[Rfam]
RNA sequence: CCGUGGAGGCACGACCGGCGCAGGUGGACCACCACCAGGGAGUACCGGCGGUGGCGUCGACCGCCUGGGCGCCUCCG
Numbered sequence: 001c002c003g004u005g006g007a008g009g010c011a012c013g014a015c016c017g018g019c020g021c022a023g024g025u026g027g028a029c030c031a032c033c034a035c036c037a038g039g040g041a042g043u044a045c046c047g048g049c050g051g052u053g054g055c056g057u058c059g060a061c062c063g064c065c066u067g068g069g070c071g072c073c074u075c076c077g
Stems, first nucleotide, its partner, number of pairs: 004050002008046002011043002015039002017065004024035004054072005
The family of this 77-nucleotide sequence from Amnibacterium setariae is "ZMP/ZTP riboswitch aptamer (pfl RNA motif)". The base pairs follow the family's consensus structure, which is taken from published work. Rfam links the family to the GO terms regulation of purine nucleotide biosynthetic process and one-carbon metabolic process. It scores 44 bits against the family's covariance model.